[Rfam]
RNA sequence: AGGAUAUAUCAAAAGAGACUUCCUGGGGCUGUGAAACCAGGGGCUCAUAAAGCUAUGAGCUAAGAUUGAAGUUUUGUAUAGGAUGCCAUAGUCACUUAGUAGUGCUGUUUUCCUGAGAAAAUAAAAGA
Numbered sequence: 001a002g003g004a005u006a007u008a009u010c011a012a013a014a015g016a017g018a019c020u021u022c023c024u025g026g027g028g029c030u031g032u033g034a035a036a037c038c039a040g041g042g043g044c045u046c047a048u049a050a051a052g053c054u055a056u057g058a059g060c061u062a063a064g065a066u067u068g069a070a071g072u073u074u075u076g077u078a079u080a081g082g083a084u085g086c087c088a089u090a091g092u093c094a095c096u097u098a099g100u101a102g103u104g105c106u107g108u109u110u111u112c113c114u115g116a117g118a119a120a121a122u123a124a125a126a127g128a
Stems, first nucleotide, its partner, number of pairs: 002060001005057003015048001017046002020043003024040001027038002073121003077117001080114004088108004093104004
Shown here is a 128-nucleotide RNA sequence from Cebus imitator, a member of the family "Small nucleolar RNA SNORA25". Rfam classes the family as an H/ACA-box small nucleolar RNA. The base pairs follow the family's consensus structure, which was predicted with RNAfold. NCBI's taxonomy places the organism under Eukaryota, Dipnotetrapodomorpha, Eutheria, Cebidae, Cebus. The family has 30 seed sequences and 1,129 matches in Rfam 15.1. Rfam describes the family as follows. ACA25 is a member of the H/ACA class of snoRNA that guide the sites of modification of uridines to pseudouridines.